[Rfam]
RNA sequence: GAGUUAGCGUUGUGUAGCAAGGUUAAGGCGAGUGCCGUAGCCGUAGCGAAAGCGAGUCCGAAUAGGGCGUUUGAGUUGCACGAUCUAGACCCGAAGCGGAGUGAUCUAUCCAUGGCCAGGUUGAAGCGCGGGUAAGACCGCGUGGAGGACCGAACCCACCUAGGUUAAAAACUGGGGGGAUGAGCUGUGGAUAGGGGUGAAAGGCCAAUCAAACUCCGUGAUAGCUGGUU
Numbered sequence: 001g002a003g004u005u006a007g008c009g010u011u012g013u014g015u016a017g018c019a020a021g022g023u024u025a026a027g028g029c030g031a032g033u034g035c036c037g038u039a040g041c042c043g044u045a046g047c048g049a050a051a052g053c054g055a056g057u058c059c060g061a062a063u064a065g066g067g068c069g070u071u072u073g074a075g076u077u078g079c080a081c082g083a084u085c086u087a088g089a090c091c092c093g094a095a096g097c098g099g100a101g102u103g104a105u106c107u108a109u110c111c112a113u114g115g116c117c118a119g120g121u122u123g124a125a126g127c128g129c130g131g132g133u134a135a136g137a138c139c140g141c142g143u144g145g146a147g148g149a150c151c152g153a154a155c156c157c158a159c160c161u162a163g164g165u166u167a168a169a170a171a172c173u174g175g176g177g178g179g180a181u182g183a184g185c186u187g188u189g190g191a192u193a194g195g196g197g198u199g200a201a202a203g204g205c206c207a208a209u210c211a212a213a214c215u216c217c218g219u220g221a222u223a224g225c226u227g228g229u230u
Stems, first nucleotide, its partner, number of pairs: 005087003009084010021042004027036003046053002056068004090228002093225001097218006106194011117182001119151004126143006155179003159176005196206003

The record is a 230-nucleotide part of an RNA from Aeromicrobium flavum, which matches "Bacterial large subunit ribosomal RNA" in Rfam.
Gene Ontology terms of the family: ribosome and structural constituent of ribosome.
The organism belongs to Aeromicrobium, within Bacteria.